[Rfam]
Small nucleolar RNA SNORA17: a 128-nucleotide RNA sequence from Mus musculus.
RNA sequence: CCUGCCCCUACAGACAUUGCAGGUAUGGGUGCUGUAUCACAUUGUGUCAGUAGGUGGCAGUGAGGAGAGAGGCUAUGUCUAUAUGUCAGAUGACCUGUAAACAUCUGACCGAUUAGUGGCCUAACGUC
Numbered sequence: 001c002c003u004g005c006c007c008c009u010a011c012a013g014a015c016a017u018u019g020c021a022g023g024u025a026u027g028g029g030u031g032c033u034g035u036a037u038c039a040c041a042u043u044g045u046g047u048c049a050g051u052a053g054g055u056g057g058c059a060g061u062g063a064g065g066a067g068a069g070a071g072g073c074u075a076u077g078u079c080u081a082u083a084u085g086u087c088a089g090a091u092g093a094c095c096u097g098u099a100a101a102c103a104u105c106u107g108a109c110c111g112a113u114u115a116g117u118g119g120c121c122u123a124a125c126g127u128c
Stems, first nucleotide, its partner, number of pairs: 002060005007054005013048003019045004024041001026039003067125001070122007082111001086108004
Rfam links the family to the GO terms nucleolus and RNA processing. Clan: SNORA17 clan. It scores 86 bits against the family's covariance model. From the family's description: snoRNA ACA 17 belongs to the H/ACA family of snoRNAs and is predicted to guide pseudouridylation of the 28S rRNA at positions U4659 and U4598. It shares the same host gene together with ACA43. NB This family has a high threshold value to exclude a large number of closely related sequences that do not appear to have conserved H and ACA boxes, and may be pseudogenes. The family's RNA type in Rfam is H/ACA-box small nucleolar RNA. Pairs were carried over by alignment from the consensus structure, which was predicted with RNAalifold.